[Rfam]
RNA sequence: AACCCUCUAGAAGGAAGCAAGGAAGGCUCGUCUCAAAGAUUAAGCCAUGCAUGUGUAAGUCUAAAUAGUUUUAGUGUGAAACUGCGAAUGGCUCAUUAUAUCAGUUAUAGUUUAUUUGGAAUAGUUUCUAUAUGGAUAACCGUAGUAAUUCUAGGGCUAAUACAUGUGUUUUCUUUGAUGGGCAACCAUUAAAGAAGUACUUAUUAGACAUAAAACCAAUUUAAUGUUGUUGUGAGUAAUAAUAAUUGUUGACUUUAUCGCAUGCUUGUUAGUAGCGAUGUUCCUUUCAAGUUUCUGCCCUAUCAGCUUUCGAUGGUAGUGUAUUGGACUACCAUGGCAGUAACGGGUAACGAAGAAUUUGGGUUCGAUUUCGGAGAGGGAGCCUGAGAGAUGGCUACCACAUCCAAGGAAGGCAGCAGGCGCGUAAAUUACCCAAUCCUGACACAGGGAGGUAGUGACAAUAAAUCUCAAUACGAAGCCUUUGGUUUUGUAAUUGAAUUGAGAACAAUGUACAAUCGUUAUCGAUAAACAAUUGGAGGGCAAGUCUGGUGCCAGCAGCCGCGGUAAUUCCAGCUCCAAUAGCGUAUAUUAACGUUGUUG
Dot-bracket structure: ...(.(((....))).).((.(.(.(((..(.(...((.....(((.(((..((...(((....((.........))...)))))......(((.......(((..((..((.....(((..........((((.....((.(((.....))).))......))))....(((((..((........))..)))))....((((((........((((......)).....))......))))))............((((.((((....))))))))...)))....))))..))).(((....(((....((((((((.......)))))))))))......)))...((((((((....))))...))))))).((.(((..........))).)).(.((....)).)...)))))).).....(.(((...(((((...))))).)))).)....).).....((((((((((((...))))))))).)))......(((.(...........)).)).........((((((.......((((.....((....)).......)))))))))).))).).).))..........
Numbered sequence: 001a002a003c004c005c006u007c008u009a010g011a012a013g014g015a016a017g018c019a020a021g022g023a024a025g026g027c028u029c030g031u032c033u034c035a036a037a038g039a040u041u042a043a044g045c046c047a048u049g050c051a052u053g054u055g056u057a058a059g060u061c062u063a064a065a066u067a068g069u070u071u072u073a074g075u076g077u078g079a080a081a082c083u084g085c086g087a088a089u090g091g092c093u094c095a096u097u098a099u100a101u102c103a104g105u106u107a108u109a110g111u112u113u114a115u116u117u118g119g120a121a122u123a124g125u126u127u128c129u130a131u132a133u134g135g136a137u138a139a140c141c142g143u144a145g146u147a148a149u150u151c152u153a154g155g156g157c158u159a160a161u162a163c164a165u166g167u168g169u170u171u172u173c174u175u176u177g178a179u180g181g182g183c184a185a186c187c188a189u190u191a192a193a194g195a196a197g198u199a200c201u202u203a204u205u206a207g208a209c210a211u212a213a214a215a216c217c218a219a220u221u222u223a224a225u226g227u228u229g230u231u232g233u234g235a236g237u238a239a240u241a242a243u244a245a246u247u248g249u250u251g252a253c254u255u256u257a258u259c260g261c262a263u264g265c266u267u268g269u270u271a272g273u274a275g276c277g278a279u280g281u282u283c284c285u286u287u288c289a290a291g292u293u294u295c296u297g298c299c300c301u302a303u304c305a306g307c308u309u310u311c312g313a314u315g316g317u318a319g320u321g322u323a324u325u326g327g328a329c330u331a332c333c334a335u336g337g338c339a340g341u342a343a344c345g346g347g348u349a350a351c352g353a354a355g356a357a358u359u360u361g362g363g364u365u366c367g368a369u370u371u372c373g374g375a376g377a378g379g380g381a382g383c384c385u386g387a388g389a390g391a392u393g394g395c396u397a398c399c400a401c402a403u404c405c406a407a408g409g410a411a412g413g414c415a416g417c418a419g420g421c422g423c424g425u426a427a428a429u430u431a432c433c434c435a436a437u438c439c440u441g442a443c444a445c446a447g448g449g450a451g452g453u454a455g456u457g458a459c460a461a462u463a464a465a466u467c468u469c470a471a472u473a474c475g476a477a478g479c480c481u482u483u484g485g486u487u488u489u490g491u492a493a494u495u496g497a498a499u500u501g502a503g504a505a506c507a508a509u510g511u512a513c514a515a516u517c518g519u520u521a522u523c524g525a526u527a528a529a530c531a532a533u534u535g536g537a538g539g540g541c542a543a544g545u546c547u548g549g550u551g552c553c554a555g556c557a558g559c560c561g562c563g564g565u566a567a568u569u570c571c572a573g574c575u576c577c578a579a580u581a582g583c584g585u586a587u588a589u590u591a592a593c594g595u596u597g598u599u600g
Stems, first nucleotide, its partner, number of pairs: 004017001006015003019590002022587001024585001026583003031463001033461001037456001038423001044421003048418003053085002058083003065077002092376003102297003107292002111290002118284003131166004140156002143153003171196005178189002201245006215233002217226002258278004263274004299347003306338003313335008351373004355366004378399002381396003401412001403410002429454001431453003437449005469496003472492009503523002505520001507519001533579006546573004555562002
Eukaryotic small subunit ribosomal RNA: a 600-nucleotide part of an RNA from Blastocystis hominis. Its family is annotated with ribosome and structural constituent of ribosome in the Gene Ontology. Pairs were carried over by alignment from the consensus structure, which is taken from published work.